[Rfam]
RNA sequence: CGCAGCAGCACGAGAGCGACCCAUUUGCUGGCAGACAAUCCAGUCUCAUUACAAGGCAAACGUGAUGGGGCUGUUUUCUGCGCUUAACCCCGUCUUCCAAUAAUUGGAAAAAUGCAGUGCAUUGCACUUGAUUGCACAACUCCUCGUCAGCGUUAGGGAACGGACUGCAUUGCUCGGGGCGAACAUCGUUCUCCUCGCGGUUCCGUAGUCCCG
Numbered sequence: 001c002g003c004a005g006c007a008g009c010a011c012g013a014g015a016g017c018g019a020c021c022c023a024u025u026u027g028c029u030g031g032c033a034g035a036c037a038a039u040c041c042a043g044u045c046u047c048a049u050u051a052c053a054a055g056g057c058a059a060a061c062g063u064g065a066u067g068g069g070g071c072u073g074u075u076u077u078c079u080g081c082g083c084u085u086a087a088c089c090c091c092g093u094c095u096u097c098c099a100a101u102a103a104u105u106g107g108a109a110a111a112a113u114g115c116a117g118u119g120c121a122u123u124g125c126a127c128u129u130g131a132u133u134g135c136a137c138a139a140c141u142c143c144u145c146g147u148c149a150g151c152g153u154u155a156g157g158g159a160a161c162g163g164a165c166u167g168c169a170u171u172g173c174u175c176g177g178g179g180c181g182a183a184c185a186u187c188g189u190u191c192u193c194c195u196c197g198c199g200g201u202u203c204c205g206u207a208g209u210c211c212c213g
Base pairs, nucleotide, nucleotide: 003030004029005028006027007025008024012020031081032080033079034078035077037075042072043071044070045069046068047067048066049065050064051063052062160206161205162204163203164201165200166199167198168197176196177195178194179193181191182190183189
Source information:
Cyano-2 RNA: a 213-nucleotide RNA sequence. It is one of the family's seed sequences.